[Rfam]
RNA sequence: UUGAGGAGCCGCUUAUCGUCUGCGCAGCAGACGAUUCUUAUAGCGGCGACGACUUGCCGUCGAGGCGUAGCCGAGGGGGCGUUUCCUUGU
Numbered sequence: 001u002u003g004a005g006g007a008g009c010c011g012c013u014u015a016u017c018g019u020c021u022g023c024g025c026a027g028c029a030g031a032c033g034a035u036u037c038u039u040a041u042a043g044c045g046g047c048g049a050c051g052a053c054u055u056g057c058c059g060u061c062g063a064g065g066c067g068u069a070g071c072c073g074a075g076g077g078g079g080c081g082u083u084u085c086c087u088u089g090u
Stems, first nucleotide, its partner, number of pairs: 008047006017033006056080003060076002064072002